RNA: Plastid-rpl16 group II-D1 intron
Organism: Schoepfia jasminodora
RNA sequence: AAGAGCUUUGAGCCAAUAAAGACUAAAAAUAUUGACUCAAAAACAA
Numbered sequence: 001a002a003g004a005g006c007u008u009u010g011a012g013c014c015a016a017u018a019a020a021g022a023c024u025a026a027a028a029a030u031a032u033u034g035a036c037u038c039a040a041a042a043a044c045a046a
Base pairs, nucleotide, nucleotide: 007041008040010038011037012036014034015033016032017031